Rfam assigns this 73-nucleotide sequence from Shimia thalassica to the family "Singlet oxygen resistance RNA X". The match comes from Rfam's covariance-model search (84 bits). A reference for the family is Berghoff et al. (2009), "Photooxidative stress-induced and abundant small RNAs in Rhodobacter sphaeroides", Mol Microbiol. The pairing is the family consensus, mapped onto this sequence. Rfam describes the family as follows. SorX (RSs2461)like SorY is a singlet oxygen induced sRNA that counteracts oxidative stress by targeting mRNA for a transporter in Rhodobacter. It also has an impact on resistance against organic hydroperoxides. It targets SD sequence of potA mRNA via an aSD sequence. The aSD sequence and some neighbouring nucleotides are identical to the one of SorY (targets takP mRNA).

RNA sequence: AUCCCGCGCAUAUCCGGGUUACGAUAUGCACCUCCCUGUUGGACUGGACCCGGACUUGUUCCGGGUCUUUUUU
Numbered sequence: 001a002u003c004c005c006g007c008g009c010a011u012a013u014c015c016g017g018g019u020u021a022c023g024a025u026a027u028g029c030a031c032c033u034c035c036c037u038g039u040u041g042g043a044c045u046g047g048a049c050c051c052g053g054a055c056u057u058g059u060u061c062c063g064g065g066u067c068u069u070u071u072u073u
Base pairs, nucleotide, nucleotide: 008029009028010027011026012025013024014023047067048066049065050064051063052062053061054060